[Rfam]
RNA sequence: UCGUGCAGCUGGGGAGGUAGCGGCGCCCUGUACCUGCAAUCCGCUAUAGCAGGGGUGAUAUCCAUCCUCGGUCUGAGCCGGUGGGGCUGCCCUCUGCAGGGGAGCGUUGACGGCCGGGUCUCGCGCAAUAGAGCUCUGUGAACCGUGUCAGGUCCGGAAGGAAGCAGCACUAAGCGGACCCCUCUAUGUGCCGCGAGGUUGCCUGGCUUGAGCUUGCCCUCUCAGGUAACGCCCAUUGGUCAGGAUCAAAGAUGGAUGCACGG
Numbered sequence: 001u002c003g004u005g006c007a008g009c010u011g012g013g014g015a016g017g018u019a020g021c022g023g024c025g026c027c028c029u030g031u032a033c034c035u036g037c038a039a040u041c042c043g044c045u046a047u048a049g050c051a052g053g054g055g056u057g058a059u060a061u062c063c064a065u066c067c068u069c070g071g072u073c074u075g076a077g078c079c080g081g082u083g084g085g086g087c088u089g090c091c092c093u094c095u096g097c098a099g100g101g102g103a104g105c106g107u108u109g110a111c112g113g114c115c116g117g118g119u120c121u122c123g124c125g126c127a128a129u130a131g132a133g134c135u136c137u138g139u140g141a142a143c144c145g146u147g148u149c150a151g152g153u154c155c156g157g158a159a160g161g162a163a164g165c166a167g168c169a170c171u172a173a174g175c176g177g178a179c180c181c182c183u184c185u186a187u188g189u190g191c192c193g194c195g196a197g198g199u200u201g202c203c204u205g206g207c208u209u210g211a212g213c214u215u216g217c218c219c220u221c222u223c224a225g226g227u228a229a230c231g232c233c234c235a236u237u238g239g240u241c242a243g244g245a246u247c248a249a250a251g252a253u254g255g256a257u258g259c260a261c262g263g
Base pairs, nucleotide, nucleotide: 001263002262003261004260005259006258007257008056009055010054011029012028013027014026016024018022033053034052035051036050037049061256062255063254064253065252066251070247071246072245073244074243077240078239079238080237081236082235083234084233085232088228089227092225093224096221100218101217103214104213105212112208113207114206115205116204117203118202119201120197121196122195123194124193125192126188127187129186130185131184132183133182135178136177137176138175139174145170146169147168148167153162154161155160
This 263-nucleotide RNA sequence from Bianquea renquensis belongs to the Rfam family "Bacterial large signal recognition particle RNA". It scores 186 bits against the family's covariance model. The source organism's lineage runs through Bacteria, Clostridia, Eubacteriales, Bianqueaceae and Bianquea. A reference for the family is Rosenblad et al. (2003), "SRPDB: Signal Recognition Particle Database", Nucleic Acids Res. Rfam classes the family as a non-coding RNA gene.